[Rfam]
RNA sequence: ACGCCAUAGGAAGAAGUGAAUGGGCUGUGAGGUCUUAUGGAUCUUGAGCCUAGGAAAGUCCCCGGGCCAUUUUCCGCAGAGAUGCGGGCCCAGCAAUGGGUAAGUCUUAGGCAUUGGAUGGUCUUGGCUGAGACUGUGUGGAGCCAUAUGGGCCGCCUUGCCAAGUUCAUAUUUGGCCAAUCGCUACAGUUAUUCACAAGGUUGUUUAAUCAACCAACAGAACGGGGCUUACUCUCUCAUGGUA
Numbered sequence: 001a002c003g004c005c006a007u008a009g010g011a012a013g014a015a016g017u018g019a020a021u022g023g024g025c026u027g028u029g030a031g032g033u034c035u036u037a038u039g040g041a042u043c044u045u046g047a048g049c050c051u052a053g054g055a056a057a058g059u060c061c062c063c064g065g066g067c068c069a070u071u072u073u074c075c076g077c078a079g080a081g082a083u084g085c086g087g088g089c090c091c092a093g094c095a096a097u098g099g100g101u102a103a104g105u106c107u108u109a110g111g112c113a114u115u116g117g118a119u120g121g122u123c124u125u126g127g128c129u130g131a132g133a134c135u136g137u138g139u140g141g142a143g144c145c146a147u148a149u150g151g152g153c154c155g156c157c158u159u160g161c162c163a164a165g166u167u168c169a170u171a172u173u174u175g176g177c178c179a180a181u182c183g184c185u186a187c188a189g190u191u192a193u194u195c196a197c198a199a200g201g202u203u204g205u206u207u208a209a210u211c212a213a214c215c216a217a218c219a220g221a222a223c224g225g226g227g228c229u230u231a232c233u234c235u236c237u238c239a240u241g242g243u244a
Stems, first nucleotide, its partner, number of pairs: 003243005009237003016197004022051005029045007056230003060227004075086004088101005104170002111161003116157002121153004125146004201214004